Overview: Rfam assigns this 116-nucleotide RNA sequence from Intrasporangium oryzae to the family "SAM (S-adenosyl methionine) riboswitch aptamer". The match comes from Rfam's covariance-model search (115 bits). SAM-IV is a mRNA element that regulates gene expression via direct sensing of S-adenosylmethionine (SAM or AdoMet).

RNA sequence: GGUCAUGAGUGCCAGCGACAAGCCCCGGCUCGCUGGCCGGCAACCCUCCUACCGCGGUGGGGUGCCCCGGGUGAGGACCUGGCCCACGGACUCCCGUCCGCGGGCAAGCGCGGAGG
Number, nucleotide and partner (000 for none) at each position: 001g079002g078003u077004c076005a000006u000007g000008a000009g038010u000011g037012c036013c035014a034015g033016c032017g000018a000019c000020a000021a030022g029023c000024c000025c000026c000027g000028g000029c022030u021031c000032g016033c015034u014035g013036g012037c011038c009039g066040g065041c064042a000043a000044c062045c061046c060047u000048c057049c056050u000051a000052c000053c000054g000055c000056g049057g048058u000059g000060g046061g045062g044063u000064g041065c040066c039067c000068c000069g000070g000071g000072u000073g000074a000075g000076g004077a003078c002079c001080u000081g000082g105083c104084c103085c102086a000087c100088g099089g098090a097091c096092u000093c000094c000095c000096g091097u090098c089099c088100g087101c000102g085103g084104g083105c082106a000107a000108g000109c000110g000111c000112g000113g000114a000115g000116g000